[Rfam]
RNA sequence: GAGCGCAGACGACCAAGAGAGCCAUCUGUUGACAGUCAUAUUUUGCAACUGUCAUGGAGUUGCUCUCUUCAUAUGCCUGUGC
Numbered sequence: 001g002a003g004c005g006c007a008g009a010c011g012a013c014c015a016a017g018a019g020a021g022c023c024a025u026c027u028g029u030u031g032a033c034a035g036u037c038a039u040a041u042u043u044u045g046c047a048a049c050u051g052u053c054a055u056g057g058a059g060u061u062g063c064u065c066u067c068u069u070c071a072u073a074u075g076c077c078u079g080u081g082c
Stems, first nucleotide, its partner, number of pairs: 015069004020064003025058004031053003035049002
RNA: mir-46/mir-47/mir-281 microRNA precursor family